A member of the RNA family "T-box leader" from Natranaerobius thermophilus, 289 nucleotides long. Its family is annotated with tRNA binding in the Gene Ontology. On this family, see Grundy et al., J Bacteriol 1994: "Interaction between the acceptor end of tRNA and the T box stimulates antitermination in the Bacillus subtilis tyrS gene: a new role for the discriminator base". The organism belongs to Natranaerobius thermophilus, within Bacteria. Uncharged tRNA acts as the effector for transcription antitermination of genes in the T-box leader family. T-boxes are found upstream of many aminoacyl-tRNA synthetase genes and some amino acid biosynthetic genes usually in Gram-positive bacteria. The anticodon of a specific tRNA base pairs to a specifier sequence within the T-box motif, and the NCCA acceptor tail of the tRNA base pairs to a conserved bulge in the T-box antiterminator hairpin.

[Rfam]
RNA sequence: UCAAAAACGAUGAUAGGGAGAGUAGCUAGUUAUUCUUCAGUAUAGCGAGCCGGGGAUUGGUGGGAGCCCGGUACUGGGAUACUAGUGAAGCGCACCCUGGAGUUGGGAACCGAACAGGAGAAUUAUUAAUUCUCAGUAGGUUACCCCGGAUUGUUUCCGUUAACAAACACAAGAGAGGACCGGUGUAAAGUGUGUAAUUUACUUGAGCUGCGGAUAUCAAUUAUUUUCCAAAUAUCCAUAGAUAACCGGUAAUCAGGGUGGUAACGCGAGUUGACUCCUCGUCCCUUAG
Numbered sequence: 001u002c003a004a005a006a007a008c009g010a011u012g013a014u015a016g017g018g019a020g021a022g023u024a025g026c027u028a029g030u031u032a033u034u035c036u037u038c039a040g041u042a043u044a045g046c047g048a049g050c051c052g053g054g055g056a057u058u059g060g061u062g063g064g065a066g067c068c069c070g071g072u073a074c075u076g077g078g079a080u081a082c083u084a085g086u087g088a089a090g091c092g093c094a095c096c097c098u099g100g101a102g103u104u105g106g107g108a109a110c111c112g113a114a115c116a117g118g119a120g121a122a123u124u125a126u127u128a129a130u131u132c133u134c135a136g137u138a139g140g141u142u143a144c145c146c147c148g149g150a151u152u153g154u155u156u157c158c159g160u161u162a163a164c165a166a167a168c169a170c171a172a173g174a175g176a177g178g179a180c181c182g183g184u185g186u187a188a189a190g191u192g193u194g195u196a197a198u199u200u201a202c203u204u205g206a207g208c209u210g211c212g213g214a215u216a217u218c219a220a221u222u223a224u225u226u227u228c229c230a231a232a233u234a235u236c237c238a239u240a241g242a243u244a245a246c247c248g249g250u251a252a253u254c255a256g257g258g259u260g261g262u263a264a265c266g267c268g269a270g271u272u273g274a275c276u277c278c279u280c281g282u283c284c285c286u287u288a289g
Base pairs, nucleotide, nucleotide: 007103008102015098016097017096018095025086026085027084028083029082030081038076039075040074049072050071051070052069053068054067105145106144108142109141110140111139147159148158149157179250180249181248182247183246184245255286256285257284258283266282267281268280269279270278